[Rfam]
The record is a 73-nucleotide sequence, which matches "U1A polyadenylation inhibition element (PIE)" in Rfam. The base pairs follow the family's consensus structure, which is taken from published work. For this family Rfam cites "Global and Local Dynamics of the U1A Polyadenylation Inhibition Element (PIE) RNA and PIE RNA-U1A Complexes" (Clerte and Hall, Biochemistry, 2004). It is annotated as a cis-regulatory element. This family represents the U1A polyadenylation inhibition element (PIE). PIE is a regulatory RNA which is responsible for the regulation of the length of the polyA tail of the U1A pre-mRNA. The PIE is located in the U1A mRNA 3' UTR. PIE adopts a U-shaped structure, with binding sites for a single U1A protein at each bend and when complexed with the two proteins it blocks activity of poly(A) polymerase (PAP), and inhibits its activity.
RNA sequence: CCACACAGCAUUGUACCCAGAGUCUGCUCCAGACAUUGCACCUGGCGCUGUCAGGCUGGAAUUAAAGUGGGUU
Numbered sequence: 001c002c003a004c005a006c007a008g009c010a011u012u013g014u015a016c017c018c019a020g021a022g023u024c025u026g027c028u029c030c031a032g033a034c035a036u037u038g039c040a041c042c043u044g045g046c047g048c049u050g051u052c053a054g055g056c057u058g059g060a061a062u063u064a065a066a067g068u069g070g071g072u073u
Stems, first nucleotide, its partner, number of pairs: 005051005017045004022034005